RNA: int-alpA RNA
Organism: Robbsia andropogonis
RNA sequence: GUCGCGCCUAGGCUGAUCCCCGAAAACACGGUUCCCUUGCCGUGCUGGCACGACCCCACAUUCGCAAGGG
Numbered sequence: 001g002u003c004g005c006g007c008c009u010a011g012g013c014u015g016a017u018c019c020c021c022g023a024a025a026a027c028a029c030g031g032u033u034c035c036c037u038u039g040c041c042g043u044g045c046u047g048g049c050a051c052g053a054c055c056c057c058a059c060a061u062u063c064g065c066a067a068g069g070g
Base pairs, nucleotide, nucleotide: 001054002053003052004051006049007048008047011021012020027044028043029042030041031040034070035069036068037067038066039065